[Rfam]
RNA: Plastid-psbM 3UTR RNA
Organism: Nicotiana attenuata
RNA sequence: GAUAGAUAGUAUGGUAGAAAGAAAGAUUCAUCUAUUUCUUUCUACCAUACUAUUUGUUAGUUAAAUUUGUAGUUAUAAAGCUGCCUCC
Numbered sequence: 001g002a003u004a005g006a007u008a009g010u011a012u013g014g015u016a017g018a019a020a021g022a023a024a025g026a027u028u029c030a031u032c033u034a035u036u037u038c039u040u041u042c043u044a045c046c047a048u049a050c051u052a053u054u055u056g057u058u059a060g061u062u063a064a065a066u067u068u069g070u071a072g073u074u075a076u077a078a079a080g081c082u083g084c085c086u087c088c
Stems, first nucleotide, its partner, number of pairs: 005054020